The record is a 173-nucleotide sequence from Alkalibacterium pelagium, which matches "Group II catalytic intron D1-D4-3" in Rfam. A search with the family's covariance model found it, with a score of 152 bits. From the family's description: Group II introns are found in rRNA, tRNA and mRNA of organelles in fungi, plants and protists, and also in mRNA in bacteria.
RNA sequence: UCCGCCGUGAGGCGGAAUCUGAAGGAAGUCGGACGCAAAUGCUUGCACUGACGAACAGAAACUUCAUACCAAGGCUUAAUAGAACGGAUGAGCUUGCAUGACAAAGUGAAGUCCGAUACUGCCCGAAUUCUAUUGAGUAAAUGAAGCAGUGACAUGAGCAGAAGGUUGUCGUU
Numbered sequence: 001u002c003c004g005c006c007g008u009g010a011g012g013c014g015g016a017a018u019c020u021g022a023a024g025g026a027a028g029u030c031g032g033a034c035g036c037a038a039a040u041g042c043u044u045g046c047a048c049u050g051a052c053g054a055a056c057a058g059a060a061a062c063u064u065c066a067u068a069c070c071a072a073g074g075c076u077u078a079a080u081a082g083a084a085c086g087g088a089u090g091a092g093c094u095u096g097c098a099u100g101a102c103a104a105a106g107u108g109a110a111g112u113c114c115g116a117u118a119c120u121g122c123c124c125g126a127a128u129u130c131u132a133u134u135g136a137g138u139a140a141a142u143g144a145a146g147c148a149g150u151g152a153c154a155u156g157a158g159c160a161g162a163a164g165g166u167u168g169u170c171g172u173u
Stems, first nucleotide, its partner, number of pairs: 001016006028173001030171003035166002040160006046151005062146006074138003078134007086114004092107004